[Rfam]
RNA sequence: UAGGCUUGCUGGGCUCCGCAGCGGCGCCUGGGUCUGACCGUUAGGGCCCGACACCGUGACAAAUUCCGGAGCUUGA
Numbered sequence: 001u002a003g004g005c006u007u008g009c010u011g012g013g014c015u016c017c018g019c020a021g022c023g024g025c026g027c028c029u030g031g032g033u034c035u036g037a038c039c040g041u042u043a044g045g046g047c048c049c050g051a052c053a054c055c056g057u058g059a060c061a062a063a064u065u066c067c068g069g070a071g072c073u074u075g076a
Base pairs, nucleotide, nucleotide: 012073013072014071015070016069017068018067022056023055024054029050030049031048032047034045